[Rfam]
RNA sequence: GAUUUUAACUGAAAAAGUCAUCAACAACAAAGUUGUAUAACUCAUCAAGACCUAUAACUUUUAUUUUGGUCAUUUCUUCAUCCGACAAAGUGAUAGUAACAUUGUUCAUAAAAUUCACAUAUCUCUCUUUUGGUUAAUAAACUAUAACAUAGACAUGUAAAUUCUGUGAACAAUAUUACUAACAUUUUAUUAGAUGAAGAAAUGAUAAAAAUAAAAGUUAUAGGUCUUGAUGAGUUAUACAACUUUGUUGUUGAUGACUUUUUUAGUUGAAAUC
Numbered sequence: 001g002a003u004u005u006u007a008a009c010u011g012a013a014a015a016a017g018u019c020a021u022c023a024a025c026a027a028c029a030a031a032g033u034u035g036u037a038u039a040a041c042u043c044a045u046c047a048a049g050a051c052c053u054a055u056a057a058c059u060u061u062u063a064u065u066u067u068g069g070u071c072a073u074u075u076c077u078u079c080a081u082c083c084g085a086c087a088a089a090g091u092g093a094u095a096g097u098a099a100c101a102u103u104g105u106u107c108a109u110a111a112a113a114u115u116c117a118c119a120u121a122u123c124u125c126u127c128u129u130u131u132g133g134u135u136a137a138u139a140a141a142c143u144a145u146a147a148c149a150u151a152g153a154c155a156u157g158u159a160a161a162u163u164c165u166g167u168g169a170a171c172a173a174u175a176u177u178a179c180u181a182a183c184a185u186u187u188u189a190u191u192a193g194a195u196g197a198a199g200a201a202a203u204g205a206u207a208a209a210a211a212u213a214a215a216a217g218u219u220a221u222a223g224g225u226c227u228u229g230a231u232g233a234g235u236u237a238u239a240c241a242a243c244u245u246u247g248u249u250g251u252u253g254a255u256g257a258c259u260u261u262u263u264u265a266g267u268u269g270a271a272a273u274c
Base pairs, nucleotide, nucleotide: 014261015260016259017258018257019256020255021254023252024251026249027248030245031244032243033242034241035240036239037238038237039236040235041234042233044231045230046229047228048227049226050225051224052223053222055220056219057218058217059216060215061214062213063212064211065210066209067208069206070205071204072203073202074201075200077198078197079196080195081194084191085190087188088187089186090185091184092183094181095180096179097178098177099176101174102173103172104171105170106169107168108167109166110165112163114161115160117158118157119156120155122153131144132143133142134141135140
RNA: MIR821 microRNA precursor family
Organism: Oryza glumipatula